[Rfam]
RNA: mir-2041 microRNA precursor family
RNA sequence: AACCCAGGGGUAUUUUCCUCUAACAUUUCAAUCGCGAGUGAAACGUUAGAGCAAAAUACCCCUGGGUC
Numbered sequence: 001a002a003c004c005c006a007g008g009g010g011u012a013u014u015u016u017c018c019u020c021u022a023a024c025a026u027u028u029c030a031a032u033c034g035c036g037a038g039u040g041a042a043a044c045g046u047u048a049g050a051g052c053a054a055a056a057u058a059c060c061c062c063u064g065g066g067u068c
Stems, first nucleotide, its partner, number of pairs: 002067015018051007026043005032037001
Dot-bracket structure: .(((((((((((((((.(((((((.(((((.(....).))))).))))))).))))))))))))))).